Overview: The record is an 83-nucleotide RNA from [Clostridium] scindens, which matches "S10-Clostridia ribosomal protein leader" in Rfam. It is annotated as a cis-regulatory leader. For this family Rfam cites "Discovery of 20 novel ribosomal leader candidates in bacteria and archaea" (Eckert and Weinberg, BMC Microbiol, 2020). Pairs were carried over by alignment from the consensus structure, which is taken from published work.
RNA sequence: UGAUAGCGUAGAAGCGCGAGGUUGCUACUUAUAUAUAGUAGGUUUUCCGUGGAGCGAAUGUCAAGUUAGGAAACUGGCGACAA
Numbered sequence: 001u002g003a004u005a006g007c008g009u010a011g012a013a014g015c016g017c018g019a020g021g022u023u024g025c026u027a028c029u030u031a032u033a034u035a036u037a038g039u040a041g042g043u044u045u046u047c048c049g050u051g052g053a054g055c056g057a058a059u060g061u062c063a064a065g066u067u068a069g070g071a072a073a074c075u076g077g078c079g080a081c082a083a
Base pairs, nucleotide, nucleotide: 014050015049016048018047019046020045021044025041026040027039028038029037059082060081061080062079065078066077067076068075